The record is a 252-nucleotide RNA from Streptomyces sp. NL15-2K, which matches "Streptomyces sRNA 4677" in Rfam. Pairs were carried over by alignment from the consensus structure. It scores 219 bits against the family's covariance model. Located in the intergenic region between anti-sigma factor SCO4677 gene and a putative regulatory protein gene SCO4676. scr4677 expression requires the SCO4677 activity and scr4677 sRNA itself seem to affect the levels of the SCO4676-associated transcripts. NCBI's taxonomy places the organism under Bacteria, Actinomycetes, Kitasatosporales, Streptomycetaceae, Streptomyces.

[Rfam]
RNA sequence: UGCUCCGGUGCGAGGGGCGCUCUUUCCCAAGAACCACGAGGGUGAAAGGACCCCCACCAAGCCCCACCCCAGCCUCCCGCCGCGCCGCACGCCCCCUCACCCACGCGAGUGAACAUCACCAACUCAGCUGGAUUCUCAGGCGGUUGCCUGUCCUACGCUCAGCGCAACACAACCGCAGACAUGCGACGGCCCCCGCCGGGACGGCAAUCCCAGUGCGAGGGCCUGACCACCGAGGAAGGUAAGGACUUCCCG
Numbered sequence: 001u002g003c004u005c006c007g008g009u010g011c012g013a014g015g016g017g018c019g020c021u022c023u024u025u026c027c028c029a030a031g032a033a034c035c036a037c038g039a040g041g042g043u044g045a046a047a048g049g050a051c052c053c054c055c056a057c058c059a060a061g062c063c064c065c066a067c068c069c070c071a072g073c074c075u076c077c078c079g080c081c082g083c084g085c086c087g088c089a090c091g092c093c094c095c096c097u098c099a100c101c102c103a104c105g106c107g108a109g110u111g112a113a114c115a116u117c118a119c120c121a122a123c124u125c126a127g128c129u130g131g132a133u134u135c136u137c138a139g140g141c142g143g144u145u146g147c148c149u150g151u152c153c154u155a156c157g158c159u160c161a162g163c164g165c166a167a168c169a170c171a172a173c174c175g176c177a178g179a180c181a182u183g184c185g186a187c188g189g190c191c192c193c194c195g196c197c198g199g200g201a202c203g204g205c206a207a208u209c210c211c212a213g214u215g216c217g218a219g220g221g222c223c224u225g226a227c228c229a230c231c232g233a234g235g236a237a238g239g240u241a242a243g244g245a246c247u248u249c250c251c252g
Stems, first nucleotide, its partner, number of pairs: 007231004016081004097112004102107001127163005188223005194217003198211004234250005